[Rfam]
RNA sequence: GGUCUUGAGUUCCAGCGACAGCCCCGGCUUGCUGGGCGGCAACCCUCCACUCGCGGUGGGGUGCCCCGGGUGAUGACCAGGCGGUCCAUCGAAACUGAUGGAUCGCAAGCGCGGGCC
Numbered sequence: 001g002g003u004c005u006u007g008a009g010u011u012c013c014a015g016c017g018a019c020a021g022c023c024c025c026g027g028c029u030u031g032c033u034g035g036g037c038g039g040c041a042a043c044c045c046u047c048c049a050c051u052c053g054c055g056g057u058g059g060g061g062u063g064c065c066c067c068g069g070g071u072g073a074u075g076a077c078c079a080g081g082c083g084g085u086c087c088a089u090c091g092a093a094a095c096u097g098a099u100g101g102a103u104c105g106c107a108a109g110c111g112c113g114g115g116c117c
Stems, first nucleotide, its partner, number of pairs: 001078004009037001011036006020029002038065003043061003047056002081106010
Background
SAM (S-adenosyl methionine) riboswitch aptamer: a 117-nucleotide RNA. The match comes from Rfam's covariance-model search (109 bits). SAM-IV is a mRNA element that regulates gene expression via direct sensing of S-adenosylmethionine (SAM or AdoMet).